[Rfam]
RNA: Caenorhabditis snoRNA ceN46
Organism: Caenorhabditis briggsae
RNA sequence: ACGACUGCAACCUGCUUUCGAUACAUUAUCGUCUGCGGUACUUGUAGUGCUAAAUGAAUGUGGGCCCUCCGUGUGCGUGUGAACUAAUUGAACUAGCACUCCGUUGGUCACCGAACAAUC
Numbered sequence: 001a002c003g004a005c006u007g008c009a010a011c012c013u014g015c016u017u018u019c020g021a022u023a024c025a026u027u028a029u030c031g032u033c034u035g036c037g038g039u040a041c042u043u044g045u046a047g048u049g050c051u052a053a054a055u056g057a058a059u060g061u062g063g064g065c066c067c068u069c070c071g072u073g074u075g076c077g078u079g080u081g082a083a084c085u086a087a088u089u090g091a092a093c094u095a096g097c098a099c100u101c102c103g104u105u106g107g108u109c110a111c112c113g114a115a116c117a118a119u120c
Stems, first nucleotide, its partner, number of pairs: 004048007012038004019031005059113002063109004069103001071101001073099004079093002